[Rfam]
RNA sequence: GUGCAUUUGUUGGAUAACCAAGGCCACACAUGUUCUGGUUGUGGGGUCUGAGCAACAAUGCAUAGAGUAAAAGCCGUUCGAUCGGCGGCGGCCAGACAACUGCAGGGAUGGUUCCACAGAUGACUGAUUAAAAUUUCUGUUUGUCUACUGAUACCAUCUCAUAUGU
Numbered sequence: 001g002u003g004c005a006u007u008u009g010u011u012g013g014a015u016a017a018c019c020a021a022g023g024c025c026a027c028a029c030a031u032g033u034u035c036u037g038g039u040u041g042u043g044g045g046g047u048c049u050g051a052g053c054a055a056c057a058a059u060g061c062a063u064a065g066a067g068u069a070a071a072a073g074c075c076g077u078u079c080g081a082u083c084g085g086c087g088g089c090g091g092c093c094a095g096a097c098a099a100c101u102g103c104a105g106g107g108a109u110g111g112u113u114c115c116a117c118a119g120a121u122g123a124c125u126g127a128u129u130a131a132a133a134u135u136u137c138u139g140u141u142u143g144u145c146u147a148c149u150g151a152u153a154c155c156a157u158c159u160c161a162u163a164u165g166u
Base pairs, nucleotide, nucleotide: 002062003061004060005059006058008054009053010052022048023047024046025045027043028042029041030040105160106159107158108157109156110155111154112153123142124139126137
Shown here is a 166-nucleotide sequence from Elaeis guineensis, a member of the family "small nucleolar RNA snoR143". Rfam classes the family as an H/ACA-box small nucleolar RNA. The base pairs follow the family's consensus structure, which was predicted with RNAalifold. Gene Ontology terms of the family: nucleolus and RNA processing. The family has 3 seed sequences and 660 matches in Rfam 15.1. The organism belongs to Elaeis, within Eukaryota.